[Rfam]
RNA sequence: GUGACGGUGAACUCCCACGCCGCGCUCGAAUCGAGCAGGGCGUCGUCGCCGAAGUGCUCGCCGUCGGCCAUCACGGCCAGCACGGUCCGGUCGCCGUAGUGGCCGGUGCCGCUCUUGGUGACCUUGCCGUGCGCGAUCAGGUGGACCGCGUCGGCCGGGGUGCCCUGGGUGACGAUGUUCUCGCCCGCGGCGUACUCCCGCUGGACGAACCGGCCCGCGAGGGCGUCGAGGGUGGCGUCGUCGCCGAGGCCGCGCAGCAGCGGCAGUUCGCGCAGUUCGGCGGGGAUGACGCUGAUCGUGGCGCCGACGUUGGUGAAGGUGAGCCGCCCGUCGCCCACGGUGUAGCUCAGGCGCCGGUUGACCCGGUAGGCGGCGCCCGCGGCGUUCACCCACGGGAGCAUUCGCAGCAGCCACCGCGAGGUGAUCUCCUGCAUCUGCGGGACGGACUUGGUGGUCGUGGCCAGUUGCCUGGCCGCGUUGGUGCUCAGGCUCUGCUGUGCUGUAGCC
Numbered sequence: 001g002u003g004a005c006g007g008u009g010a011a012c013u014c015c016c017a018c019g020c021c022g023c024g025c026u027c028g029a030a031u032c033g034a035g036c037a038g039g040g041c042g043u044c045g046u047c048g049c050c051g052a053a054g055u056g057c058u059c060g061c062c063g064u065c066g067g068c069c070a071u072c073a074c075g076g077c078c079a080g081c082a083c084g085g086u087c088c089g090g091u092c093g094c095c096g097u098a099g100u101g102g103c104c105g106g107u108g109c110c111g112c113u114c115u116u117g118g119u120g121a122c123c124u125u126g127c128c129g130u131g132c133g134c135g136a137u138c139a140g141g142u143g144g145a146c147c148g149c150g151u152c153g154g155c156c157g158g159g160g161u162g163c164c165c166u167g168g169g170u171g172a173c174g175a176u177g178u179u180c181u182c183g184c185c186c187g188c189g190g191c192g193u194a195c196u197c198c199c200g201c202u203g204g205a206c207g208a209a210c211c212g213g214c215c216c217g218c219g220a221g222g223g224c225g226u227c228g229a230g231g232g233u234g235g236c237g238u239c240g241u242c243g244c245c246g247a248g249g250c251c252g253c254g255c256a257g258c259a260g261c262g263g264c265a266g267u268u269c270g271c272g273c274a275g276u277u278c279g280g281c282g283g284g285g286a287u288g289a290c291g292c293u294g295a296u297c298g299u300g301g302c303g304c305c306g307a308c309g310u311u312g313g314u315g316a317a318g319g320u321g322a323g324c325c326g327c328c329c330g331u332c333g334c335c336c337a338c339g340g341u342g343u344a345g346c347u348c349a350g351g352c353g354c355c356g357g358u359u360g361a362c363c364c365g366g367u368a369g370g371c372g373g374c375g376c377c378c379g380c381g382g383c384g385u386u387c388a389c390c391c392a393c394g395g396g397a398g399c400a401u402u403c404g405c406a407g408c409a410g411c412c413a414c415c416g417c418g419a420g421g422u423g424a425u426c427u428c429c430u431g432c433a434u435c436u437g438c439g440g441g442a443c444g445g446a447c448u449u450g451g452u453g454g455u456c457g458u459g460g461c462c463a464g465u466u467g468c469c470u471g472g473c474c475g476c477g478u479u480g481g482u483g484c485u486c487a488g489g490c491u492c493u494g495c496u497g498u499g500c501u502g503u504a505g506c507c
Stems, first nucleotide, its partner, number of pairs: 006390007014382002019328001021326002025323004031316002036312003040308001045305001047303005054233002057230004062225003065111004075103001077102003082097005119220001122217001127212001129210002131206001134203002140197001143196002149192002156187001158186004162178002166174002234296001236294002240290004245285001250282001253279002256277003260271003329342004353377001355375002362370002391431002394428004399423003403418003407415001437476004444469002448464005477506002480501003486497003
Shown here is a 507-nucleotide RNA from Actinokineospora alba, a member of the family "Saccharopolyspora sRNA 350". The family has 2 seed sequences and 1,170 matches in Rfam 15.1. The family's consensus secondary structure was predicted with RNAfold. The family's RNA type in Rfam is antisense RNA. Its family is annotated with regulation of secondary metabolite biosynthetic process in the Gene Ontology. A search with the family's covariance model found it, with a score of 203 bits. The organism belongs to Actinokineospora, within Bacteria.